[Rfam]
RNA sequence: AUUGCAUACUUAUCUACUAUAUGGUAGCCGAGAUACAUGUAUUUCAUCUACUAUAUAGUAGGUAAGUAUGCAGUUU
Numbered sequence: 001a002u003u004g005c006a007u008a009c010u011u012a013u014c015u016a017c018u019a020u021a022u023g024g025u026a027g028c029c030g031a032g033a034u035a036c037a038u039g040u041a042u043u044u045c046a047u048c049u050a051c052u053a054u055a056u057a058g059u060a061g062g063u064a065a066g067u068a069u070g071c072a073g074u075u076u
Base pairs, nucleotide, nucleotide: 001074002073003072004071005070006069007068008067009066010065011064012063013062014061015060017058018057019056020055021054022053023052024051025050026049027048030045031044033042034041035040
Dot-bracket structure: (((((((((((((((.(((((((((((..((.(((....))).))..))))))))))).)))))))))))))))..
This 76-nucleotide sequence from Ameiurus melas belongs to the Rfam family "mir-7563 microRNA precursor family". The match comes from Rfam's covariance-model search (86 bits). The source organism's lineage runs through Eukaryota, Gnathostomata, Ostariophysi, Characiphysae and Ameiurus.